[Rfam]
RNA sequence: UGGUAGUGAUGAGCAAUUCGAGAGUUAUGCACCACUCUGAUUUAGAUCUGUAAAUGGAUCUUUGUGCUGAGUAUUUCUGUACCAUAUUUUAAACUGAGCCA
Numbered sequence: 001u002g003g004u005a006g007u008g009a010u011g012a013g014c015a016a017u018u019c020g021a022g023a024g025u026u027a028u029g030c031a032c033c034a035c036u037c038u039g040a041u042u043u044a045g046a047u048c049u050g051u052a053a054a055u056g057g058a059u060c061u062u063u064g065u066g067c068u069g070a071g072u073a074u075u076u077c078u079g080u081a082c083c084a085u086a087u088u089u090u091a092a093a094c095u096g097a098g099c100c101a
Stems, first nucleotide, its partner, number of pairs: 001101004